[Rfam]
The family of this 81-nucleotide RNA sequence is "dinG RNA".
RNA sequence: AAUGAUACUUCCACGCCAGUGGCCCGCAUAAGUGACGGGAAAAUGCACACUCACGUUUGAGAAAGAAUGUGGGCGGCUUUU
Dot-bracket structure: ..........((((....))))(((((......).))))((((.((...(..(((((........)))))..)..))))))
The sequence is in the family's curated seed alignment.